[Rfam]
RNA sequence: AGCCUCUCGCCACGGGUAUGGUAGCAUAUAUUCAGAUGCAAGGACCAUGUCUGUCAGGAGCUGGCUGAAAUGAACCUUUCACCUAUCGAUAGGAAGCUGCGGACCCACUUCAGCAAUGGUUUUGCGGUGCCAUACCGGGUGAUUACAAAA
Number, nucleotide and partner (000 for none) at each position: 001a000002g065003c064004c063005u000006c000007u060008c000009g000010c000011c000012a000013c053014g052015g051016g050017u049018a048019u000020g046021g045022u044023a000024g039025c038026a037027u000028a000029u000030a000031u000032u000033c000034a000035g000036a000037u026038g025039c024040a000041a000042g000043g000044a022045c021046c020047a000048u018049g017050u016051c015052u014053g013054u000055c000056a000057g000058g000059a000060g007061c000062u000063g004064g003065c002066u000067g000068a000069a000070a000071u000072g000073a000074a000075c000076c000077u000078u000079u142080c141081a140082c139083c138084u000085a000086u000087c000088g000089a000090u000091a000092g131093g130094a000095a000096g000097c127098u126099g125100c000101g122102g121103a120104c119105c118106c000107a000108c000109u000110u000111c000112a000113g000114c000115a000116a000117u000118g105119g104120u103121u102122u101123u000124g000125c099126g098127g097128u000129g000130c093131c092132a000133u000134a000135c000136c000137g000138g083139g082140u081141g080142a079143u000144u000145a000146c000147a000148a000149a000150a000
RNA: Small nucleolar RNA snoR2/U65